This 67-nucleotide sequence from Bacillus sp. NRRL B-14911 belongs to the Rfam family "Bacillaceae-1 RNA". The sequence is in the family's curated seed alignment. Taxonomically the source falls in Bacillus (Bacteria, Bacillota, Bacilli, Bacillaceae). By type it is a small RNA.

[Rfam]
RNA sequence: UGUCAAGGAACGCAGACUAAAAACGCCACGUCCUGUGGCAACGUCUGCAUGACCCGCGUCCUGCGGG
Numbered sequence: 001u002g003u004c005a006a007g008g009a010a011c012g013c014a015g016a017c018u019a020a021a022a023a024c025g026c027c028a029c030g031u032c033c034u035g036u037g038g039c040a041a042c043g044u045c046u047g048c049a050u051g052a053c054c055c056g057c058g059u060c061c062u063g064c065g066g067g
Stems, first nucleotide, its partner, number of pairs: 012048006025039005053067005
Dot-bracket structure: ...........((((((.......(((((.....)))))...))))))....(((((.....)))))